[Rfam]
RNA sequence: AAAUUGAAAUUAAAAGUUGCCGUCGUCGUAAGUAAUUAUGACGAUAAUAACAUCGCUAUAUGCUGGAAACCCCUAAAGACUUAAAAACCUAGUUUUUCAACUUCCGAAGAACGGGUGAAAUUUUUAAUCUCCUGGUUAAUCUAACGACUGACCAAAGAGAAAUCACAAGGUUAGCUUGUGGUUGUAUGUACAAUGGGCGAUCAGCAGGAAACCAACGGAAUAUAAUAUUAUAUUCUUAGUAGGAUCCUCAGAGACUACACGCGAUGCCCCAAAGGUCUAUAGACCUUUGGGUGAAGAUAUAGUCCGGUCCAUGAUGAAAGUCAUGG
Numbered sequence: 001a002a003a004u005u006g007a008a009a010u011u012a013a014a015a016g017u018u019g020c021c022g023u024c025g026u027c028g029u030a031a032g033u034a035a036u037u038a039u040g041a042c043g044a045u046a047a048u049a050a051c052a053u054c055g056c057u058a059u060a061u062g063c064u065g066g067a068a069a070c071c072c073c074u075a076a077a078g079a080c081u082u083a084a085a086a087a088c089c090u091a092g093u094u095u096u097u098c099a100a101c102u103u104c105c106g107a108a109g110a111a112c113g114g115g116u117g118a119a120a121u122u123u124u125u126a127a128u129c130u131c132c133u134g135g136u137u138a139a140u141c142u143a144a145c146g147a148c149u150g151a152c153c154a155a156a157g158a159g160a161a162a163u164c165a166c167a168a169g170g171u172u173a174g175c176u177u178g179u180g181g182u183u184g185u186a187u188g189u190a191c192a193a194u195g196g197g198c199g200a201u202c203a204g205c206a207g208g209a210a211a212c213c214a215a216c217g218g219a220a221u222a223u224a225a226u227a228u229u230a231u232a233u234u235c236u237u238a239g240u241a242g243g244a245u246c247c248u249c250a251g252a253g254a255c256u257a258c259a260c261g262c263g264a265u266g267c268c269c270c271a272a273a274g275g276u277c278u279a280u281a282g283a284c285c286u287u288u289g290g291g292u293g294a295a296g297a298u299a300u301a302g303u304c305c306g307g308u309c310c311a312u313g314a315u316g317a318a319a320g321u322c323a324u325g326g
Stems, first nucleotide, its partner, number of pairs: 004012001051266006061206006071197003207247002212242001213239001218235005251305001253304005268291009311324005
Dot-bracket structure: ...(.......)......................................((((((....((((((....(((.........................................................................................................................)))...))))))((...((....(((((........)))))...)..)...))...[.[[[[[...)))))).(((((((((......)))))))))........]]]]]].....(((((....)))))..
RNA: Group I catalytic intron
Organism: Thamnidium elegans